[Rfam]
RNA sequence: GAAGCUAUGAUAACAGAAGACUUUAAUGUGUUAUGGGCAGUGGAUGUAAGUUUUAAUUAAGUUAUGUCGUGAGCCUAUAUAAUAAACUUCUCAUUCCACUGAUCUUC
Numbered sequence: 001g002a003a004g005c006u007a008u009g010a011u012a013a014c015a016g017a018a019g020a021c022u023u024u025a026a027u028g029u030g031u032u033a034u035g036g037g038c039a040g041u042g043g044a045u046g047u048a049a050g051u052u053u054u055a056a057u058u059a060a061g062u063u064a065u066g067u068c069g070u071g072a073g074c075c076u077a078u079a080u081a082a083u084a085a086a087c088u089u090c091u092c093a094u095u096c097c098a099c100u101g102a103u104c105u106u107c
Stems, first nucleotide, its partner, number of pairs: 001107004